RNA sequence: GAGUUUCCGGCGGAACAACCUCCUCCCUGUUCCUUCGGAAUUGACCGGCCCCUCCUCCUCCCAAAGGCCGGUCAUCCCAAAACGACACCCGCCGAACCUCCUCCCUCGGCGGGUGUUGUUU
Dot-bracket structure: ......(((..(((((............)))))..)))....((((((((...............))))))))...........(((((((((((..........))))))))))).....
The family of this 121-nucleotide RNA sequence from Nitratireductor indicus is "Alphaproteobacterial ar14". Smr14C2 was renamed NfeR1 (Nodule Formation Efficiency RNA) highly expressed in salt stress and during the symbiotic interaction on legume roots. The organism belongs to Nitratireductor indicus, within Bacteria. Pairs were carried over by alignment from the consensus structure.